[Rfam]
RNA sequence: UGCCGCUGUCCCUAGGGUUCCGACGCCGUGUUCGGCGUGCCUGGACCGAGAGGGACAGCCCGGUGGCGAGACAUUCGCCGGGUGCACGGCGGGAUAAAAGCCCGGGAGGC
Numbered sequence: 001u002g003c004c005g006c007u008g009u010c011c012c013u014a015g016g017g018u019u020c021c022g023a024c025g026c027c028g029u030g031u032u033c034g035g036c037g038u039g040c041c042u043g044g045a046c047c048g049a050g051a052g053g054g055a056c057a058g059c060c061c062g063g064u065g066g067c068g069a070g071a072c073a074u075u076c077g078c079c080g081g082g083u084g085c086a087c088g089g090c091g092g093g094a095u096a097a098a099a100g101c102c103c104g105g106g107a108g109g110c
Base pairs, nucleotide, nucleotide: 007057008056009055010054011053012052015047016046020044021043022041023038024037025036026035027034028033058083059082060081061080062079063078064077065076085105087108091103092102093101
RNA: Guanidine-I riboswitch aptamer
Organism: Ancylobacter tetraedralis